RNA sequence: UCCAAAUACCGGUAAGCAAUCGCUUAUGUCAGGUCGACAAUCAGAGAGCGAUCGAUGAGAUUAAGUGUAUGUUAAGUACACCGCACUGGUUGGGGGCGCCCGCUUGGACGCUUUUUUUAUGGCA
Numbered sequence: 001u002c003c004a005a006a007u008a009c010c011g012g013u014a015a016g017c018a019a020u021c022g023c024u025u026a027u028g029u030c031a032g033g034u035c036g037a038c039a040a041u042c043a044g045a046g047a048g049c050g051a052u053c054g055a056u057g058a059g060a061u062u063a064a065g066u067g068u069a070u071g072u073u074a075a076g077u078a079c080a081c082c083g084c085a086c087u088g089g090u091u092g093g094g095g096g097c098g099c100c101c102g103c104u105u106g107g108a109c110g111c112u113u114u115u116u117u118u119a120u121g122g123c124a
Base pairs, nucleotide, nucleotide: 008034009033010032011029012027013026014025015024016023017022038092039091040090041089042088043087048084049083050082051061052060053059065081066080067079068078069077070076093114094113095112096111097110098109100107101106
The family of this 124-nucleotide RNA sequence is "DUF3800-I RNA".
The family's RNA type in Rfam is small RNA.
Rfam's curators put it in the seed alignment.
From the family's description: Actinobacteria, Firmicutes, Fusobacteria, Proteobacteria (1 example), Tenericutes (2 examples).